[Rfam]
RNA sequence: AAACGAGUUACUGGGCAAUUACUCCUCUGGCAGUAAGUGUCAUUUUCUAACACUAACCGCCAAGGGAGAUUUGCCCUGCAAUUCUUUA
Numbered sequence: 001a002a003a004c005g006a007g008u009u010a011c012u013g014g015g016c017a018a019u020u021a022c023u024c025c026u027c028u029g030g031c032a033g034u035a036a037g038u039g040u041c042a043u044u045u046u047c048u049a050a051c052a053c054u055a056a057c058c059g060c061c062a063a064g065g066g067a068g069a070u071u072u073g074c075c076c077u078g079c080a081a082u083u084c085u086u087u088a
Base pairs, nucleotide, nucleotide: 005084006083007082008081009080011078013076014075015074016073017072018071022068023067024066025065028062029061030060031059033057034056036054037053038052039051040050